[Rfam]
The record is an 80-nucleotide RNA from Solanum lycopersicum, which matches "Small nucleolar RNA U61" in Rfam.
On this family, see Brown et al., Nucleic Acids Res 2003: "Plant snoRNA database".
The match comes from Rfam's covariance-model search (83 bits).
Rfam 15.1 lists 401 matches to the family in 204 species.
RNA sequence: GUGCUGUGAUGAAAAAUUCCUUGUGUCGGAGACUUAUCGUCGUUGAUGGCUUACACAACCCUCUAAGAAGUUCUGAGCAC
Numbered sequence: 001g002u003g004c005u006g007u008g009a010u011g012a013a014a015a016a017u018u019c020c021u022u023g024u025g026u027c028g029g030a031g032a033c034u035u036a037u038c039g040u041c042g043u044u045g046a047u048g049g050c051u052u053a054c055a056c057a058a059c060c061c062u063c064u065a066a067g068a069a070g071u072u073c074u075g076a077g078c079a080c
Base pairs, nucleotide, nucleotide: 001080002079003078004077
Pairs were carried over by alignment from the consensus structure, which was predicted with WAR.